[Rfam]
RNA sequence: GCCUCCUUAGCUCAGUUGGUUAGAGCAGCUGACUCUUAAUCAGCGGGUCCUAGGUUCGAGUCCUAGAGGGGGCA
Numbered sequence: 001g002c003c004u005c006c007u008u009a010g011c012u013c014a015g016u017u018g019g020u021u022a023g024a025g026c027a028g029c030u031g032a033c034u035c036u037u038a039a040u041c042a043g044c045g046g047g048u049c050c051u052a053g054g055u056u057c058g059a060g061u062c063c064u065a066g067a068g069g070g071g072g073c074a
Stems, first nucleotide, its partner, number of pairs: 001073007010026004028044005050066005
The family of this 74-nucleotide RNA sequence from Phycisphaera mikurensis is "tRNA". Gene Ontology term of the family: triplet codon-amino acid adaptor activity. Rfam classes the family as a transfer RNA. A search with the family's covariance model found it, with a score of 71 bits. The family's consensus secondary structure is taken from published work. The source organism's lineage runs through Bacteria, Pseudomonadati, Planctomycetota, Phycisphaerae and Phycisphaera mikurensis.